[Rfam]
RNA sequence: UGCCCUGGAUGCAAGGCGUAAAAAGGCACAUCCAAAGGGACGUGAACCCGUAAAAAACGUA
Numbered sequence: 001u002g003c004c005c006u007g008g009a010u011g012c013a014a015g016g017c018g019u020a021a022a023a024a025g026g027c028a029c030a031u032c033c034a035a036a037g038g039g040a041c042g043u044g045a046a047c048c049c050g051u052a053a054a055a056a057a058c059g060u061a
Base pairs, nucleotide, nucleotide: 001018002017003016004015010028011027012026037049038048039047
Shown here is a 61-nucleotide RNA sequence, a member of the family "GP20-b RNA". It is one of the family's seed sequences. The base pairs follow the family's consensus structure, which is taken from published work.